This 77-nucleotide RNA belongs to the Rfam family "Small nucleolar RNA SNORD113/SNORD114 family".
Rfam's curators put it in the seed alignment.
By type it is a C/D-box small nucleolar RNA.
From the family's description: The imprinted human domain at 14q32 contains two clusters of tandemly repeated small nucleolar RNAs named 14q(I) and 14q(II) snoRNAs. These two clusters are named SNORD113 and SNORD114 respectively in the HGNC approved gene symbol nomenclature. The snoRNAs found in both clusters are clearly related and are represented here by a single family. These snoRNAs are intron encoded and are processed from the tissue-specific non-coding human MEG8 RNA, which lies downstream of the imprinted genes DLK1 and GTL2. snoRNAs 14q(I) and 14q(II) differ from previously identified C/D box snoRNAs in their expression profiles and lack of complementarity to rRNA and snRNA. Homologues of these snoRNAs are found in the imprinted non-coding mouse transcript Rian, and in the rat non-coding Bsr (brain-specific repetitive) RNA.
The base pairs follow the family's consensus structure, which is taken from published work.
Gene Ontology terms of the family: nucleolus and RNA processing.

[Rfam]
RNA sequence: UGGAUCAAUGAUGAGUAUGCGUGGGGCAUCUGAAUCAAAUAUUCUGAUUAUACCCUGUCUGUAUCUCUGAGGUCCAU
Numbered sequence: 001u002g003g004a005u006c007a008a009u010g011a012u013g014a015g016u017a018u019g020c021g022u023g024g025g026g027c028a029u030c031u032g033a034a035u036c037a038a039a040u041a042u043u044c045u046g047a048u049u050a051u052a053c054c055c056u057g058u059c060u061g062u063a064u065c066u067c068u069g070a071g072g073u074c075c076a077u
Stems, first nucleotide, its partner, number of pairs: 002075005
Dot-bracket structure: .(((((................................................................)))))..